[Rfam]
RNA sequence: AAGGUUUAAAGCUAAACCUAUCGUAAGUUAGGGGCGGAAAAUCACGAAUCCAAGACGUUUUGGACAGUCGGGUUACCGAG
Numbered sequence: 001a002a003g004g005u006u007u008a009a010a011g012c013u014a015a016a017c018c019u020a021u022c023g024u025a026a027g028u029u030a031g032g033g034g035c036g037g038a039a040a041a042u043c044a045c046g047a048a049u050c051c052a053a054g055a056c057g058u059u060u061u062g063g064a065c066a067g068u069c070g071g072g073u074u075a076c077c078g079a080g
Stems, first nucleotide, its partner, number of pairs: 012037002017032004022027001040074004045070003049064006